RNA sequence: GCCCAGGUGAUGAAAUUGGUAGACUUGGCGGACUCAAAAUCCGCUGCCGAAAGGCGUGCCGGUUCGAUUCCGGCCCUGGGCA
Number, nucleotide and partner (000 for none) at each position: 001g081002c080003c079004c078005a077006g076007g075008u000009g000010a026011u000012g024013a000014a000015a000016u000017u000018g000019g000020u000021a000022g000023a000024c012025u000026u010027g000028g044029c043030g042031g041032a040033c000034u000035c000036a000037a000038a000039a000040u032041c031042c030043g029044c028045u000046g000047c000048c000049g000050a000051a000052a000053g000054g000055c000056g000057u000058g074059c073060c072061g071062g070063u000064u000065c000066g000067a000068u000069u000070c062071c061072g060073g059074c058075c007076c006077u005078g004079g003080g002081c001082a000

Background:
A member of the RNA family "tRNA" from Polaromonas naphthalenivorans, 82 nucleotides long. Transfer RNA (tRNA) molecules are approximately 80 nucleotides in length. By type it is a transfer RNA. The match comes from Rfam's covariance-model search (50 bits). The base pairs follow the family's consensus structure, which is taken from published work.